[Rfam]
The family of this 78-nucleotide RNA sequence from Eragrostis curvula is "Small nucleolar RNA R160".
Rfam 15.1 lists 799 matches to the family in 221 species.
The organism belongs to Eragrostis, within Eukaryota.
On this family, see Chen et al., Nucleic Acids Res 2003: "The high diversity of snoRNAs in plants: identification and comparative study of 120 snoRNA genes from Oryza sativa".
It scores 71 bits against the family's covariance model.
Gene Ontology terms of the family: nucleolus and RNA processing.
About the family: snoR160 is a C/D box small nucleolar RNA, which acts as a methylation guide for 25S ribosomal RNA in plants. snoR160 has been alternatively named snoZ270 in rice.
The base pairs follow the family's consensus structure.
RNA sequence: AGCGAAGUGAGGAGAUCGAAAAAACUGAAAGUUUUCAUGUUGAUAACACCACAUGGUCUUCAAAGUUCUCUGAUCGCU
Numbered sequence: 001a002g003c004g005a006a007g008u009g010a011g012g013a014g015a016u017c018g019a020a021a022a023a024a025c026u027g028a029a030a031g032u033u034u035u036c037a038u039g040u041u042g043a044u045a046a047c048a049c050c051a052c053a054u055g056g057u058c059u060u061c062a063a064a065g066u067u068c069u070c071u072g073a074u075c076g077c078u
Stems, first nucleotide, its partner, number of pairs: 001078005